[Rfam]
RNA sequence: UUUCCAGCCAGGCUCCUGGCUAAAGUCCAGCUCGUAGCUGGGUUUAGCCAAAGCCUGGCUUGUAA
Numbered sequence: 001u002u003u004c005c006a007g008c009c010a011g012g013c014u015c016c017u018g019g020c021u022a023a024a025g026u027c028c029a030g031c032u033c034g035u036a037g038c039u040g041g042g043u044u045u046a047g048c049c050a051a052a053g054c055c056u057g058g059c060u061u062g063u064a065a
Base pairs, nucleotide, nucleotide: 007059008058009057011055012054013053014052017050018049019048020047021046022045023044024043027041028040029039030038031037
RNA: mir-344 microRNA precursor family
Organism: Cricetulus griseus